[Rfam]
RNA sequence: GGAUUACUCCUUUACGCUUUCGCGUUUGGUUGAUAAAGAUUCGCACCUCUAUCAAACCGGGUAAUCCCACCUCUUGGCAAGACCUGCUGUCAGAUCAAAUCUGAACUACUACACUUUAUAUAAAUUGGUUGUGAAAUUUUUUCAUUUAUAUGGCAGUCAUGAUUCUUUUUCAUUCUGGUUGAAAAUUCCGAAGCUG
Number, nucleotide and partner (000 for none) at each position: 001g067002g066003a065004u064005u063006a062007c061008u000009c060010c059011u000012u000013u000014a025015c024016g023017c022018u000019u000020u000021c000022g017023c016024g015025u014026u000027u000028g058029g057030u056031u055032g053033a052034u051035a050036a000037a048038g047039a000040u000041u000042c000043g000044c000045a000046c000047c038048u037049c000050u035051a034052u033053c032054a000055a031056a030057c029058c028059g010060g009061g007062u006063a005064a004065u003066c002067c001068c000069a000070c196071c000072u000073c000074u000075u144076g143077g142078c000079a000080a000081g138082a137083c000084c000085u135086g000087c000088u000089g106090u105091c103092a102093g101094a100095u099096c000097a000098a000099a095100u094101c093102u092103g091104a000105a090106c089107u000108a132109c131110u000111a129112c000113a125114c000115u000116u000117u000118a000119u000120a000121u000122a000123a000124a000125u113126u000127g000128g000129u111130u000131g109132u108133g000134a000135a085136a000137u082138u081139u000140u000141u000142u077143c076144a075145u000146u000147u000148a000149u000150a000151u000152g000153g000154c000155a000156g000157u000158c000159a000160u000161g188162a000163u000164u000165c000166u184167u183168u182169u181170u000171c178172a000173u000174u000175c000176u000177g000178g171179u000180u000181g169182a168183a167184a166185a000186u000187u000188c161189c000190g000191a000192a000193g000194c000195u000196g070